[Rfam]
RNA sequence: CCGCCUGUCAUCGGGGAGUAGCCUCCCUUCGAAUCCGAAAGGGGCUUGCGUCAACAGACUUGGGGCGACCCAUGGCGCAAGCGGUCCGGACUUGGCGAGACCUUUGACUGCGCAGCCUCCGUCAUGGCCGGGGAAGCUGGGCAGUCAUUGCGUGCGCGCCGGCCGGACUC
Numbered sequence: 001c002c003g004c005c006u007g008u009c010a011u012c013g014g015g016g017a018g019u020a021g022c023c024u025c026c027c028u029u030c031g032a033a034u035c036c037g038a039a040a041g042g043g044g045c046u047u048g049c050g051u052c053a054a055c056a057g058a059c060u061u062g063g064g065g066c067g068a069c070c071c072a073u074g075g076c077g078c079a080a081g082c083g084g085u086c087c088g089g090a091c092u093u094g095g096c097g098a099g100a101c102c103u104u105u106g107a108c109u110g111c112g113c114a115g116c117c118u119c120c121g122u123c124a125u126g127g128c129c130g131g132g133g134a135a136g137c138u139g140g141g142c143a144g145u146c147a148u149u150g151c152g153u154g155c156g157c158g159c160c161g162g163c164c165g166g167a168c169u170c
Stems, first nucleotide, its partner, number of pairs: 026042003044082010061072004083169007
Shown here is a 170-nucleotide RNA sequence from Ramlibacter lithotrophicus, a member of the family "Manganese Mn2+ riboswitch aptamer (yybP-ykoY)".
A reference for the family is Argaman et al. (2001), "Novel small RNA-encoding genes in the intergenic regions of Escherichia coli", Curr Biol.
The source organism's lineage runs through Bacteria, Pseudomonadati, Betaproteobacteria, Burkholderiales and Ramlibacter.
This RNA was originally discovered in E. coli during a large scale screen and was named SraF. The family was later found to exist upstream of related families of protein genes in many bacteria, including the the yybP and ykoK genes in B. subtilis. The specific functions of these proteins are unknown, but this structured RNA element may be involved in their genetic regulation as a riboswitch.
The base pairs follow the family's consensus structure.